[Rfam]
This 52-nucleotide sequence from Pontibaca salina belongs to the Rfam family "ffh sRNA". A search with the family's covariance model found it, with a score of 61 bits. The family's RNA type in Rfam is small RNA. The base pairs follow the family's consensus structure, which is taken from published work. Taxonomically the source falls in Pontibaca (Bacteria, Pseudomonadota, Alphaproteobacteria, Roseobacteraceae).
RNA sequence: GCGGUUCGGGAUCGCCCUCCACCAGCGCGUUGCGCCCGUGGAGGCAUUUGCG
Numbered sequence: 001g002c003g004g005u006u007c008g009g010g011a012u013c014g015c016c017c018u019c020c021a022c023c024a025g026c027g028c029g030u031u032g033c034g035c036c037c038g039u040g041g042a043g044g045c046a047u048u049u050g051c052g
Stems, first nucleotide, its partner, number of pairs: 016044007025035004